A member of the RNA family "TPP riboswitch aptamer (THI element)" from Methylobacterium durans, 109 nucleotides long. The family's consensus secondary structure is taken from published work.

RNA sequence: AACCGUUCCGAGGGGAGCCCCGAGACAGGGGGCUGAGAUAGGACGCUACGUCCUGACCCUUGAACCUGAUCCGGCUCAUACCGGCGGAGGGACGGGAACUCGCGGCAAG
Numbered sequence: 001a002a003c004c005g006u007u008c009c010g011a012g013g014g015g016a017g018c019c020c021c022g023a024g025a026c027a028g029g030g031g032g033c034u035g036a037g038a039u040a041g042g043a044c045g046c047u048a049c050g051u052c053c054u055g056a057c058c059c060u061u062g063a064a065c066c067u068g069a070u071c072c073g074g075c076u077c078a079u080a081c082c083g084g085c086g087g088a089g090g091g092a093c094g095g096g097a098a099c100u101c102g103c104g105g106c107a108a109g
Stems, first nucleotide, its partner, number of pairs: 006097005011060004017033005040054005065090003071084004
The organism belongs to Methylobacterium, within Bacteria.